This 114-nucleotide sequence from Candidula unifasciata belongs to the Rfam family "Potassium channel RNA editing signal". Rfam classes the family as a cis-regulatory element. From the family's description: This family represents a group of sequences related to the human potassium channel Kv1.1 hairpin element which directs the efficient modification of an adenosine to inosine by an adenosine deaminase acting on RNA (ADAR). For this family Rfam cites "Control of human potassium channel inactivation by editing of a small mRNA hairpin" (Bhalla et al., Nat Struct Mol Biol, 2004).
[Rfam]
RNA sequence: GUAGGGUAUGGUGAUAUGGUGCCUAAGACUUAUGUAGGGAUGUUCGUGGGGGCGCUGUGUGCUCUCGCAGGUGUCCUGUGCAUUGCGUUACCUGUUCCAGUCAUUGUGUCCAAC
Numbered sequence: 001g002u003a004g005g006g007u008a009u010g011g012u013g014a015u016a017u018g019g020u021g022c023c024u025a026a027g028a029c030u031u032a033u034g035u036a037g038g039g040a041u042g043u044u045c046g047u048g049g050g051g052g053c054g055c056u057g058u059g060u061g062c063u064c065u066c067g068c069a070g071g072u073g074u075c076c077u078g079u080g081c082a083u084u085g086c087g088u089u090a091c092c093u094g095u096u097c098c099a100g101u102c103a104u105u106g107u108g109u110c111c112a113a114c
Stems, first nucleotide, its partner, number of pairs: 001114002004111002007108005013102003018097002021095002037077004049063002